[Rfam]
RNA sequence: GGCGCUGAAACUCAGAGCGGACUGCGGGCAGACCCGGGGGCAGUACCCGGCGCCUCCACCUUAGCAGCUUGAGCUUAAAGGUCUCAUUUCGGUGAGAUCGAUUCCGUCGCAAGGCGGAAUUCCUAAGCUGUUAAGGCGGGGGCGAAACAGGAUCGAUGGUCGCGAAGAAGCUCUGAAUUGUUCCCGGCAUGAUACCGCCGUUAUCGGGUCAAAAACCUAAAUGCAAACGAUAACGUUGCAUUGAACGAAGUGCGCCUCGCGGCGUAA
Numbered sequence: 001g002g003c004g005c006u007g008a009a010a011c012u013c014a015g016a017g018c019g020g021a022c023u024g025c026g027g028g029c030a031g032a033c034c035c036g037g038g039g040g041c042a043g044u045a046c047c048c049g050g051c052g053c054c055u056c057c058a059c060c061u062u063a064g065c066a067g068c069u070u071g072a073g074c075u076u077a078a079a080g081g082u083c084u085c086a087u088u089u090c091g092g093u094g095a096g097a098u099c100g101a102u103u104c105c106g107u108c109g110c111a112a113g114g115c116g117g118a119a120u121u122c123c124u125a126a127g128c129u130g131u132u133a134a135g136g137c138g139g140g141g142g143c144g145a146a147a148c149a150g151g152a153u154c155g156a157u158g159g160u161c162g163c164g165a166a167g168a169a170g171c172u173c174u175g176a177a178u179u180g181u182u183c184c185c186g187g188c189a190u191g192a193u194a195c196c197g198c199c200g201u202u203a204u205c206g207g208g209u210c211a212a213a214a215a216c217c218u219a220a221a222u223g224c225a226a227a228c229g230a231u232a233a234c235g236u237u238g239c240a241u242u243g244a245a246c247g248a249a250g251u252g253c254g255c256c257u258c259g260c261g262g263c264g265u266a267a
Stems, first nucleotide, its partner, number of pairs: 001184002004181002014174004024163003029158002034050005051144007185200004